[Rfam]
Rfam assigns this 86-nucleotide sequence from Syntrophothermus lipocalidus to the family "c-di-GMP-I riboswitch aptamer". Taxonomically the source falls in Syntrophothermus lipocalidus (Bacteria, Clostridia, Syntrophomonadaceae, Syntrophothermus). Gene Ontology term of the family: cyclic-di-GMP binding.
RNA sequence: AACAACUAAGGGCAAACUCACCGAAAGGUGAGGGCGCAAAGCCUCGGGCCUAAGGGCGAGGAGUCUAUGGCGGCCGGGUUGCCUUA
Numbered sequence: 001a002a003c004a005a006c007u008a009a010g011g012g013c014a015a016a017c018u019c020a021c022c023g024a025a026a027g028g029u030g031a032g033g034g035c036g037c038a039a040a041g042c043c044u045c046g047g048g049c050c051u052a053a054g055g056g057c058g059a060g061g062a063g064u065c066u067a068u069g070g071c072g073g074c075c076g077g078g079u080u081g082c083c084u085u086a
Stems, first nucleotide, its partner, number of pairs: 012037002017032006040080004045076003048071003055065003
The base pairs follow the family's consensus structure, which is taken from published work. It scores 78 bits against the family's covariance model.